A member of the RNA family "Flavo-1 RNA" from Sediminicola sp. YIK13, 104 nucleotides long.
The organism belongs to Sediminicola, within Bacteria.
Rfam classes the family as a small RNA.
Pairs were carried over by alignment from the consensus structure, which is taken from published work.
[Rfam]
RNA sequence: UUUUGGCUUAGGGAUGGCAACGGCAUCCUUUUCUUUUGGCACAUCGGAUAGUUGAAGAUGGAUCAUGGAAAAAAGAAAAGAUCAAGUGAACAGCCCGGCCGCUA
Numbered sequence: 001u002u003u004u005g006g007c008u009u010a011g012g013g014a015u016g017g018c019a020a021c022g023g024c025a026u027c028c029u030u031u032u033c034u035u036u037u038g039g040c041a042c043a044u045c046g047g048a049u050a051g052u053u054g055a056a057g058a059u060g061g062a063u064c065a066u067g068g069a070a071a072a073a074a075g076a077a078a079a080g081a082u083c084a085a086g087u088g089a090a091c092a093g094c095c096c097g098g099c100c101g102c103u104a
Stems, first nucleotide, its partner, number of pairs: 011096003015092002020087002025082003031077007